[Rfam]
RNA sequence: CUUUAAAUCCAAGGUAUACCUUGACGCAAAUCCAAGGUAUACCUUGAAUUUAAAG
Numbered sequence: 001c002u003u004u005a006a007a008u009c010c011a012a013g014g015u016a017u018a019c020c021u022u023g024a025c026g027c028a029a030a031u032c033c034a035a036g037g038u039a040u041a042c043c044u045u046g047a048a049u050u051u052a053a054a055g
Stems, first nucleotide, its partner, number of pairs: 001055008010046004015041009
Rfam assigns this 55-nucleotide RNA sequence from Paulinella micropora to the family "mir-7883 microRNA precursor family". Lineage of the source: Eukaryota > Rhizaria > Euglyphida > Paulinellidae > Paulinella.